Background
A member of the RNA family "EFASI RNA" from Acerihabitans arboris, 131 nucleotides long. The family's consensus secondary structure is taken from published work. NCBI's taxonomy places the organism under Bacteria, Gammaproteobacteria, Enterobacterales, Pectobacteriaceae, Acerihabitans.
[Rfam]
RNA sequence: CUGAAUCAAUACCUGAGGCAGGCUUUACCGCCUGAGGGGAUUUCCUGCUGACGCAGGCGGUUGCACCGAGUGCAUAACCGACUCCCCGCCACACCUCAACCACUGCCACUCCGGCGCACAGGUAUUGUUCA
Numbered sequence: 001c002u003g004a005a006u007c008a009a010u011a012c013c014u015g016a017g018g019c020a021g022g023c024u025u026u027a028c029c030g031c032c033u034g035a036g037g038g039g040a041u042u043u044c045c046u047g048c049u050g051a052c053g054c055a056g057g058c059g060g061u062u063g064c065a066c067c068g069a070g071u072g073c074a075u076a077a078c079c080g081a082c083u084c085c086c087c088g089c090c091a092c093a094c095c096u097c098a099a100c101c102a103c104u105g106c107c108a109c110u111c112c113g114g115c116g117c118a119c120a121g122g123u124a125u126u127g128u129u130c131a
Stems, first nucleotide, its partner, number of pairs: 002131004007127008019034005036087004044057005058080004062074005